[Rfam]
RNA sequence: UUCUUGAACAUUCUCCGAGCCGAAUUGCCUAACAGGACCACCUCACGGCGUUCGGCCUAUGGGUACCGCUGGAAACGGCGUUACCUCCCGUUUGCAAAGGAGACCCAACGGCACAGAU
Numbered sequence: 001u002u003c004u005u006g007a008a009c010a011u012u013c014u015c016c017g018a019g020c021c022g023a024a025u026u027g028c029c030u031a032a033c034a035g036g037a038c039c040a041c042c043u044c045a046c047g048g049c050g051u052u053c054g055g056c057c058u059a060u061g062g063g064u065a066c067c068g069c070u071g072g073a074a075a076c077g078g079c080g081u082u083a084c085c086u087c088c089c090g091u092u093u094g095c096a097a098a099g100g101a102g103a104c105c106c107a108a109c110g111g112c113a114c115a116g117a118u
Base pairs, nucleotide, nucleotide: 004111006109012103013102014101015100016099019056020055021054022053023052024051025050027049028048029047034043035042036041061086062085063084064083065082067080068079069078070077071076088094
Rfam assigns this 118-nucleotide RNA from Geobacter argillaceus to the family "Molybdenum/Tungsten riboswitch aptamer (Moco RNA motif)". A search with the family's covariance model found it, with a score of 69 bits. The family's consensus secondary structure is taken from published work. Gene Ontology terms of the family: regulation of gene expression, tungstate binding and molybdenum ion binding.